[Rfam]
RNA sequence: CGCAUGGAGUAGCAAUACUCAGUGAUAAGUCAAACAGAAGUCAGCAGAGUCCAUAGUAGUUCCAUUUGGAGCGAAGGGA
Numbered sequence: 001c002g003c004a005u006g007g008a009g010u011a012g013c014a015a016u017a018c019u020c021a022g023u024g025a026u027a028a029g030u031c032a033a034a035c036a037g038a039a040g041u042c043a044g045c046a047g048a049g050u051c052c053a054u055a056g057u058a059g060u061u062c063c064a065u066u067u068g069g070a071g072c073g074a075a076g077g078g079a
Stems, first nucleotide, its partner, number of pairs: 002026001004023002007020005041048002050079003059072005
RNA: Group II catalytic intron D1-D4-1
Organism: Oculatella sp. FACHB-28